Record summary:
This 120-nucleotide sequence from Marchantia polymorpha belongs to the Rfam family "Small nucleolar RNA SNORD14". The literature on the family includes a 1996 paper in Nucleic Acids Res by Samarsky et al., "An essential domain in Saccharomyces cerevisiae U14 snoRNA is absent in vertebrates, but conserved in other yeasts". It scores 77 bits against the family's covariance model. The family has 18 seed sequences and 4,559 matches in Rfam 15.1. The organism belongs to Marchantia polymorpha, within Eukaryota.
[Rfam]
RNA sequence: CGUCUGUGAUGACACACUGAAGGCUUGUUUCUCAAACAUUCGCAGUGGCCGCCCUAGAGUUUUCGCCUCGCCGGGCUUGAGAAUUGAUGCGGUUCUAUCCUUCCUUGGAUGUCUGAGACG
Numbered sequence: 001c002g003u004c005u006g007u008g009a010u011g012a013c014a015c016a017c018u019g020a021a022g023g024c025u026u027g028u029u030u031c032u033c034a035a036a037c038a039u040u041c042g043c044a045g046u047g048g049c050c051g052c053c054c055u056a057g058a059g060u061u062u063u064c065g066c067c068u069c070g071c072c073g074g075g076c077u078u079g080a081g082a083a084u085u086g087a088u089g090c091g092g093u094u095c096u097a098u099c100c101u102u103c104c105u106u107g108g109a110u111g112u113c114u115g116a117g118a119c120g
Stems, first nucleotide, its partner, number of pairs: 001120004059084006
Dot-bracket structure: ((((......................................................((((((..............))))))................................))))